[Rfam]
RNA sequence: AAGAACUGAUGGCAUUGAAAAGUCAAAUGAAGGUGUAACGCCUUGAAGGGCUUUCUCUGAUACUCCGAUAUGUGUCUUAUUUAUUAAGAAAUGAGAGAUAUAAAGCUCGGUGAAGUCGAUUGAGAAUACACCCUAAUGCUGUGCAUAUGCAGAGUAAAUGAACAGCGAAGCAGAGGUGGUUGUGUGUACGAUAGAUCGGGAGUCCAUAAA
Numbered sequence: 001a002a003g004a005a006c007u008g009a010u011g012g013c014a015u016u017g018a019a020a021a022g023u024c025a026a027a028u029g030a031a032g033g034u035g036u037a038a039c040g041c042c043u044u045g046a047a048g049g050g051c052u053u054u055c056u057c058u059g060a061u062a063c064u065c066c067g068a069u070a071u072g073u074g075u076c077u078u079a080u081u082u083a084u085u086a087a088g089a090a091a092u093g094a095g096a097g098a099u100a101u102a103a104a105g106c107u108c109g110g111u112g113a114a115g116u117c118g119a120u121u122g123a124g125a126a127u128a129c130a131c132c133c134u135a136a137u138g139c140u141g142u143g144c145a146u147a148u149g150c151a152g153a154g155u156a157a158a159u160g161a162a163c164a165g166c167g168a169a170g171c172a173g174a175g176g177u178g179g180u181u182g183u184g185u186g187u188a189c190g191a192u193a194g195a196u197c198g199g200g201a202g203u204c205c206a207u208a209a210a
Base pairs, nucleotide, nucleotide: 019054020053021052022051023050024049032044033043035041055202056201057200058199065110066109067108068107069102070101071100072099073098075096076095077094078093079092080091081090082089117198118197119196120195121194127188128187129186130185131184132160134158165183166182167181169180171178172177

This 210-nucleotide RNA sequence from Clostridium estertheticum belongs to the Rfam family "Group II catalytic intron D1-D4-5". The match comes from Rfam's covariance-model search (138 bits). A reference for the family is Chu et al. (2001), "Control of branch-site choice by a group II intron", EMBO J. The base pairs follow the family's consensus structure. Rfam's curators write: Group II introns are found in rRNA, tRNA and mRNA of organelles in fungi, plants and protists, and also in mRNA in bacteria.